[Rfam]
RNA sequence: ACAAUGGAGAGUUUGAUCCUGGCUCAGGAUGAACGCUAGCGGGAGGCCUAACACAUGCAAGCCGAGCGGUAGAAGUCCUUCGGGACUUUGAGAGCGGCGUACGGGUGCGUAACACGUGUGCAACCUACCUUUAUCAGGGGAAUAGCCUUUCGAAAGGAAGAUUAAUACCCCAUAAUAUAUUGAAUGGCAUCAUUUAAUAUUGAAAACUCCGGUGGAUAGAGAUGGGCACGCGCAAGAUUAGAUAGUUGGUGAGGUAACGGCUCACCAAGUCAAUGAUCUUUAGGGGUCCUGAGAGGGAGAUCCCCCACACUGGUACUGAGACACGGACCAGACUCCUACGGGAGGCAGCAGUGAGGAAUAUUGGACAAUGGGUGAGAGCCUGAUCCAGCCAUCCCGCGUGAAGGAUGACGGUCCUAUGGAUUGUAAACUUCUUUUGUAUAGGAAUAAACCUACUCUCGUGAGAGUAGCUGAAGGUACUAUACGAAUAAGCACCGGCUAACUCCGUGCCAGCAGCCGCGGUAAUACGGAGGGUGCAAGCGUUAUCCGGAUUUAUUG
Numbered sequence: 001a002c003a004a005u006g007g008a009g010a011g012u013u014u015g016a017u018c019c020u021g022g023c024u025c026a027g028g029a030u031g032a033a034c035g036c037u038a039g040c041g042g043g044a045g046g047c048c049u050a051a052c053a054c055a056u057g058c059a060a061g062c063c064g065a066g067c068g069g070u071a072g073a074a075g076u077c078c079u080u081c082g083g084g085a086c087u088u089u090g091a092g093a094g095c096g097g098c099g100u101a102c103g104g105g106u107g108c109g110u111a112a113c114a115c116g117u118g119u120g121c122a123a124c125c126u127a128c129c130u131u132u133a134u135c136a137g138g139g140g141a142a143u144a145g146c147c148u149u150u151c152g153a154a155a156g157g158a159a160g161a162u163u164a165a166u167a168c169c170c171c172a173u174a175a176u177a178u179a180u181u182g183a184a185u186g187g188c189a190u191c192a193u194u195u196a197a198u199a200u201u202g203a204a205a206a207c208u209c210c211g212g213u214g215g216a217u218a219g220a221g222a223u224g225g226g227c228a229c230g231c232g233c234a235a236g237a238u239u240a241g242a243u244a245g246u247u248g249g250u251g252a253g254g255u256a257a258c259g260g261c262u263c264a265c266c267a268a269g270u271c272a273a274u275g276a277u278c279u280u281u282a283g284g285g286g287u288c289c290u291g292a293g294a295g296g297g298a299g300a301u302c303c304c305c306c307a308c309a310c311u312g313g314u315a316c317u318g319a320g321a322c323a324c325g326g327a328c329c330a331g332a333c334u335c336c337u338a339c340g341g342g343a344g345g346c347a348g349c350a351g352u353g354a355g356g357a358a359u360a361u362u363g364g365a366c367a368a369u370g371g372g373u374g375a376g377a378g379c380c381u382g383a384u385c386c387a388g389c390c391a392u393c394c395c396g397c398g399u400g401a402a403g404g405a406u407g408a409c410g411g412u413c414c415u416a417u418g419g420a421u422u423g424u425a426a427a428c429u430u431c432u433u434u435u436g437u438a439u440a441g442g443a444a445u446a447a448a449c450c451u452a453c454u455c456u457c458g459u460g461a462g463a464g465u466a467g468c469u470g471a472a473g474g475u476a477c478u479a480u481a482c483g484a485a486u487a488a489g490c491a492c493c494g495g496c497u498a499a500c501u502c503c504g505u506g507c508c509a510g511c512a513g514c515c516g517c518g519g520u521a522a523u524a525c526g527g528a529g530g531g532u533g534c535a536a537g538c539g540u541u542a543u544c545c546g547g548a549u550u551u552a553u554u555g
Stems, first nucleotide, its partner, number of pairs: 009025005027545004032541006039397006045390002047355001052353003056350003061098003066095002070091001072089007105308003115232007124225002129221007137171004145162001147160005177200010205213001234280003241271003246268008283305004287298004310331005333344004361387001363386003369382005400431004410422004436482006445472001451466003489534005500529005510517002
A member of the RNA family "Bacterial small subunit ribosomal RNA" from Kaistella treverensis, 555 nucleotides of a longer RNA. The base pairs follow the family's consensus structure, which is taken from published work. The source organism's lineage runs through Bacteria, Flavobacteriia, Flavobacteriales, Weeksellaceae and Kaistella. On this family, see Yusupov et al., Science 2001: "Crystal structure of the ribosome at 5.5 A resolution". The family has 99 seed sequences and 42,628 matches in Rfam 15.1.